[Rfam]
RNA sequence: CUAUAUUCACCCUGUAGAUACGAAUUUGUGUACAAAAACAUAAAUAGCAGCAGCCACAAAUUCGCGUCUUGGGGAGCAUGUAGG
Numbered sequence: 001c002u003a004u005a006u007u008c009a010c011c012c013u014g015u016a017g018a019u020a021c022g023a024a025u026u027u028g029u030g031u032a033c034a035a036a037a038a039c040a041u042a043a044a045u046a047g048c049a050g051c052a053g054c055c056a057c058a059a060a061u062u063c064g065c066g067u068c069u070u071g072g073g074g075a076g077c078a079u080g081u082a083g084g
Base pairs, nucleotide, nucleotide: 002082003081004080005079006078010074011073012072016069017068018067019066021064022063023062024061025060026059027058028057029056030055
The family of this 84-nucleotide RNA sequence from Mola mola is "mir-10 microRNA precursor family".
Rfam links the family to the GO terms miRNA-mediated post-transcriptional gene silencing and RISC complex.
For this family Rfam cites "microRNAs: tiny regulators with great potential" (Ambros, Cell, 2001).
The family has 36 seed sequences and 3,853 matches in Rfam 15.1.
A search with the family's covariance model found it, with a score of 51 bits.
Lineage of the source: Eukaryota > Eumetazoa > Clupeocephala > Moloidei > Mola.